Shown here is a 327-nucleotide RNA from Flavobacterium aurantiibacter, a member of the family "Bacterial RNase P class A". Its family is annotated with dimeric ribonuclease P complex, ribonuclease P activity and tRNA processing in the Gene Ontology. It is annotated as a ribozyme. A search with the family's covariance model found it, with a score of 183 bits.
RNA sequence: CCCGCAGACCGCCUUAUCGCUCUUGUUUAGGCAGGGGAGGAAAGUCCGGACACCACAGAGAAGCAUAGCGGGUAACGCCCGUCGCUCGAGCAAUCGGGAAGGACAAGUGCAACAGAAAGGAUGUACAGGUUAAGCUGUAGUGAAAUCAGGUAAACUCUAUGCGGUGAAAUUUCAAGUAUAUCAGCUUUCGCGCAAGCGAUAAAGGUUUCUCGCCUGAGGCUGAAGGGUAGAAAGCUAGAAUUGUCGGGUAACCGCCAAUCCAGAUAAAUGAUAAGGCUGCUUCCGUUUGGGAGUUGACAGAAUCCGGCUUAUAGGUCUGCUUUUUUU
Number, nucleotide and partner (000 for none) at each position: 001c000002c000003c000004g320005c319006a318007g317008a316009c315010c314011g312012c276013c275014u274015u273016a272017u271018c270019g000020c037021u036022c035023u034024u033025g032026u031027u000028u000029a000030g000031g026032c025033a024034g023035g022036g021037g020038a000039g000040g000041a000042a310043a309044g308045u000046c307047c306048g305049g304050a303051c166052a165053c164054c163055a000056c000057a000058g211059a210060g209061a208062a000063g162064c161065a160066u159067a158068g082069c081070g080071g079072g078073u000074a000075a000076c000077g000078c072079c071080c070081g069082u068083c101084g000085c098086u097087c096088g095089a094090g000091c000092a000093a000094u089095c088096g087097g086098g085099a000100a000101g083102g157103a156104c000105a000106a000107g155108u154109g151110c150111a000112a000113c000114a000115g000116a000117a000118a000119g000120g000121a000122u000123g000124u139125a000126c137127a136128g135129g000130u000131u000132a000133a000134g000135c128136u127137g126138u000139a124140g000141u000142g000143a000144a000145a000146u000147c000148a000149g000150g110151u109152a000153a000154a108155c107156u103157c102158u067159a066160u065161g064162c063163g054164g053165u052166g051167a000168a000169a000170u233171u232172u231173c230174a000175a000176g000177u000178a000179u000180a000181u223182c222183a221184g220185c219186u000187u000188u000189c000190g000191c000192g000193c000194a000195a000196g000197c000198g000199a000200u000201a000202a000203a215204g214205g213206u212207u000208u061209c060210u059211c058212g206213c205214c204215u203216g000217a000218g000219g185220c184221u183222g182223a181224a000225g000226g000227g000228u000229a000230g173231a172232a171233a170234g000235c000236u000237a000238g000239a000240a259241u258242u257243g256244u000245c254246g253247g252248g000249u000250a000251a000252c247253c246254g245255c000256c243257a242258a241259u240260c000261c000262a000263g000264a000265u000266a000267a000268a000269u000270g018271a017272u016273a015274a014275g013276g012277c000278u000279g000280c000281u000282u000283c000284c000285g000286u000287u000288u000289g000290g000291g000292a000293g000294u000295u000296g000297a000298c000299a000300g000301a000302a000303u050304c049305c048306g047307g046308c044309u043310u042311a000312u011313a000314g010315g009316u008317c007318u006319g005320c004321u000322u000323u000324u000325u000326u000327u000